[Rfam]
Small nucleolar RNA Z112: a 181-nucleotide sequence from Triticum aestivum. Rfam links the family to the GO terms nucleolus and RNA processing. The family has 6 seed sequences and 427 matches in Rfam 15.1.

RNA sequence: UUGCUGUUGGUGAAGAACUCAGACCAGGAAGUGCCGUAUGGCACUCUAAAUAGCAGCUGCUCUGCCGCUGUAAGUGGUCCAUCCCUGUAUCAUAACCUCUGGUUUUUUAUGGGGUGGAAAUCCCAUUUGCAACCGCUUUUUUCAGCCGUGUGAAUUAUUUGAAACGGGUGUCUGAGGGCAA
Numbered sequence: 001u002u003g004c005u006g007u008u009g010g011u012g013a014a015g016a017a018c019u020c021a022g023a024c025c026a027g028g029a030a031g032u033g034c035c036g037u038a039u040g041g042c043a044c045u046c047u048a049a050a051u052a053g054c055a056g057c058u059g060c061u062c063u064g065c066c067g068c069u070g071u072a073a074g075u076g077g078u079c080c081a082u083c084c085c086u087g088u089a090u091c092a093u094a095a096c097c098u099c100u101g102g103u104u105u106u107u108u109a110u111g112g113g114g115u116g117g118a119a120a121u122c123c124c125a126u127u128u129g130c131a132a133c134c135g136c137u138u139u140u141u142u143c144a145g146c147c148g149u150g151u152g153a154a155u156u157a158u159u160u161g162a163a164a165c166g167g168g169u170g171u172c173u174g175a176g177g178g179c180a181a
Base pairs, nucleotide, nucleotide: 001181002180003179004178005177069131070130071129072128073127074126075125076124078118079117080116081115082114083113084112088109089108092105094104095103096102097101